The record is a 135-nucleotide RNA sequence from Neodrepanis coruscans, which matches "Small nucleolar RNA SNORA58" in Rfam. Rfam's curators write: ACA52 is a member of the H/ACA class of snoRNA that guide the sites of modification of uridines to pseudouridines. The family is grouped with related families in Rfam's "SNORA44 clan".

[Rfam]
RNA sequence: CUGCAUACUAGUAGACCCUUUCUGACUGUGCUGUGGUCACAAAGGGGGGACAAUGUAUGCAACAGCAAAGCCUAAGUUGCCAGCAGAACUCGACAGCAGCUCUGUGGCUGUUUGGACUCUGGUACUUGCACAGAA
Numbered sequence: 001c002u003g004c005a006u007a008c009u010a011g012u013a014g015a016c017c018c019u020u021u022c023u024g025a026c027u028g029u030g031c032u033g034u035g036g037u038c039a040c041a042a043a044g045g046g047g048g049g050a051c052a053a054u055g056u057a058u059g060c061a062a063c064a065g066c067a068a069a070g071c072c073u074a075a076g077u078u079g080c081c082a083g084c085a086g087a088a089c090u091c092g093a094c095a096g097c098a099g100c101u102c103u104g105u106g107g108c109u110g111u112u113u114g115g116a117c118u119c120u121g122g123u124a125c126u127u128g129c130a131c132a133g134a135a
Base pairs, nucleotide, nucleotide: 003060004059005058006057007056008055016046017045018044019043020042021041023039024038073128074127075126076125078124081121082120083119093111094110095109096108097107